The family of this 77-nucleotide RNA from Mesocricetus auratus is "Small nucleolar RNA SNORD115". Its family is annotated with nucleolus and RNA processing in the Gene Ontology. Taxonomically the source falls in Mesocricetus (Eukaryota, Sarcopterygii, Cricetidae, Cricetinae).
[Rfam]
RNA sequence: CGGUCUAUGAUGACAAACCAAUGACAUGAAGAUAGGUGAUGACAUAAAAUGAUGCUCAAAGGAUUAUGCUGAGGCCC
Numbered sequence: 001c002g003g004u005c006u007a008u009g010a011u012g013a014c015a016a017a018c019c020a021a022u023g024a025c026a027u028g029a030a031g032a033u034a035g036g037u038g039a040u041g042a043c044a045u046a047a048a049a050u051g052a053u054g055c056u057c058a059a060a061g062g063a064u065u066a067u068g069c070u071g072a073g074g075c076c077c
Base pairs, nucleotide, nucleotide: 002076003075004074005071008068009067